[Rfam]
RNA sequence: GUGUCAUGGUCAUUGUUGACCGCUCAUACGACCAUUGCAAUUGCAUUGUAGCUUAUGCGGCGGUCGUAUAACGGUCAACAGAGACCCUUAACAU
Numbered sequence: 001g002u003g004u005c006a007u008g009g010u011c012a013u014u015g016u017u018g019a020c021c022g023c024u025c026a027u028a029c030g031a032c033c034a035u036u037g038c039a040a041u042u043g044c045a046u047u048g049u050a051g052c053u054u055a056u057g058c059g060g061c062g063g064u065c066g067u068a069u070a071a072c073g074g075u076c077a078a079c080a081g082a083g084a085c086c087c088u089u090a091a092c093a094u
Stems, first nucleotide, its partner, number of pairs: 001094004006089001008086004013081010024070001026069008035060005043052001

Rfam assigns this 94-nucleotide RNA sequence from Medicago truncatula to the family "MIR2587 microRNA precursor family". For this family Rfam cites "Genome-wide Medicago truncatula small RNA analysis revealed novel microRNAs and isoforms differentially regulated in roots and nodules" (Lelandais-Briere et al., Plant Cell, 2009). Gene Ontology terms of the family: miRNA-mediated post-transcriptional gene silencing and RISC complex. A search with the family's covariance model found it, with a score of 88 bits.